[Rfam]
Rfam assigns this 131-nucleotide RNA sequence from Rhynochetos jubatus to the family "Small nucleolar RNA SNORA44". On this family, see Huttenhofer et al., EMBO J 2001: "RNomics: an experimental approach that identifies 201 candidates for novel, small, non-messenger RNAs in mouse". About the family: ACA44 is a member of the H/ACA class of snoRNA that guide the sites of modification of uridines to pseudouridines. The family has 27 seed sequences and 1,056 matches in Rfam 15.1.
RNA sequence: CGGCAUGUUCAUCCAAGAGCUGCGGCUGCGCGCAAUAGCUGCAGGUCUCCAACAACAUGCGAGAGCAACGGGAAGGUCUUUGACUGCUCGGCCCCUCCUGCCCGCUGCUGUCACUCGCCCCUCCGAUAGUU
Numbered sequence: 001c002g003g004c005a006u007g008u009u010c011a012u013c014c015a016a017g018a019g020c021u022g023c024g025g026c027u028g029c030g031c032g033c034a035a036u037a038g039c040u041g042c043a044g045g046u047c048u049c050c051a052a053c054a055a056c057a058u059g060c061g062a063g064a065g066c067a068a069c070g071g072g073a074a075g076g077u078c079u080u081u082g083a084c085u086g087c088u089c090g091g092c093c094c095c096u097c098c099u100g101c102c103c104g105c106u107g108c109u110g111u112c113a114c115u116c117g118c119c120c121c122u123c124c125g126a127u128a129g130u131u
Stems, first nucleotide, its partner, number of pairs: 013044001018040004022033003071124003075120002086111002089104003
Its family is annotated with nucleolus and RNA processing in the Gene Ontology. The organism belongs to Rhynochetos, within Eukaryota.